[Rfam]
This 83-nucleotide RNA from Cervus elaphus belongs to the Rfam family "mir-489 microRNA precursor family". The family's consensus secondary structure was predicted with RNAalifold. Lineage of the source: Eukaryota > Metazoa > Teleostomi > Mammalia > Cervus elaphus. Rfam links the family to the GO terms RISC complex and miRNA-mediated post-transcriptional gene silencing.

RNA sequence: GCGGCGGCUUGGUGGUCGUAUGUGUGGCGCCAUCUACUGGAGCCUUUAGGAGUGACGUCACAUAUACGCGACUAAACUGCCGC
Numbered sequence: 001g002c003g004g005c006g007g008c009u010u011g012g013u014g015g016u017c018g019u020a021u022g023u024g025u026g027g028c029g030c031c032a033u034c035u036a037c038u039g040g041a042g043c044c045u046u047u048a049g050g051a052g053u054g055a056c057g058u059c060a061c062a063u064a065u066a067c068g069c070g071a072c073u074a075a076a077c078u079g080c081c082g083c
Stems, first nucleotide, its partner, number of pairs: 002082006015069001017068006024061004029056001031054003037050002